Shown here is a 211-nucleotide RNA sequence from Carlito syrichta, a member of the family "Small nucleolar RNA U3".
The match comes from Rfam's covariance-model search (99 bits).
About the family: Small nucleolar RNAs (snoRNAs) are involved in the processing and modification of rRNA in the nucleolus. There are two main classes of snoRNAs: the box C/D class, and the box H/ACA class.

RNA sequence: AAUUCUAAGACUUCAGGCAUCGUGUCUAUAGUUCAUUACUAGAGAAGCUUCUCUGAUUGUGUGGAGCACGGGAAACCACGAGGAGAAGGCGUAGCAUUCUCUCCUGAGCUUGAAGUUGGCUCUUGGUGUUGCUAUAACUUCCAUUUGCCAUGGAUGGUCACGCUUGUUUUCCUUCUGUAGAGCAAGAGGAAGAGGACACAGUCUGAGUGGA
Numbered sequence: 001a002a003u004u005c006u007a008a009g010a011c012u013u014c015a016g017g018c019a020u021c022g023u024g025u026c027u028a029u030a031g032u033u034c035a036u037u038a039c040u041a042g043a044g045a046a047g048c049u050u051c052u053c054u055g056a057u058u059g060u061g062u063g064g065a066g067c068a069c070g071g072g073a074a075a076c077c078a079c080g081a082g083g084a085g086a087a088g089g090c091g092u093a094g095c096a097u098u099c100u101c102u103c104c105u106g107a108g109c110u111u112g113a114a115g116u117u118g119g120c121u122c123u124u125g126g127u128g129u130u131g132c133u134a135u136a137a138c139u140u141c142c143a144u145u146u147g148c149c150a151u152g153g154a155u156g157g158u159c160a161c162g163c164u165u166g167u168u169u170u171c172c173u174u175c176u177g178u179a180g181a182g183c184a185a186g187a188g189g190a191a192g193a194g195g196a197c198a199c200a201g202u203c204u205g206a207g208u209g210g211a
Base pairs, nucleotide, nucleotide: 002040004038006035008033010032011031012030015027016026017025018024049065050064051063054061076210077209078208079207094199097196098195099194100193101192102191104189105188108161118149119148120147124143125142126141128138129137130136131135164185165184166183167182168181169180170179172177
By type it is a C/D-box small nucleolar RNA. Clan: U3 clan. Rfam 15.1 lists 19,072 matches to the family in 1,215 species. On this family, see Speckmann et al., Mol Cell Biol 1999: "Nuclear retention elements of U3 small nucleolar RNA".